[Rfam]
RNA sequence: GCGAGGUGAGGUAGUAGGUUGUAUAGUUUGUGGGAUGGAUUGAAUCCUUAUUUUGGUGAUAACUAUACAGUCUAGUGCCUUUCUCGA
Numbered sequence: 001g002c003g004a005g006g007u008g009a010g011g012u013a014g015u016a017g018g019u020u021g022u023a024u025a026g027u028u029u030g031u032g033g034g035a036u037g038g039a040u041u042g043a044a045u046c047c048u049u050a051u052u053u054u055g056g057u058g059a060u061a062a063c064u065a066u067a068c069a070g071u072c073u074a075g076u077g078c079c080u081u082u083c084u085c086g087a
Base pairs, nucleotide, nucleotide: 002086003085004084005083006082008081009080010079011078012077013076015074016073017072018071019070020069021068022067023066024065025064026063027062032048033047034046035045051058

Rfam assigns this 87-nucleotide RNA sequence from Gadus morhua to the family "let-7 microRNA precursor family". The organism belongs to Gadus, within Eukaryota. The family has 64 seed sequences and 8,694 matches in Rfam 15.1. From the family's description: This family represents the microRNAs (miRNA) let-7 and mir-98. let-7 was identified from a study of developmental timing in C. elegans, and was later shown to be part of a much larger class of non-coding RNAs termed miRNAs.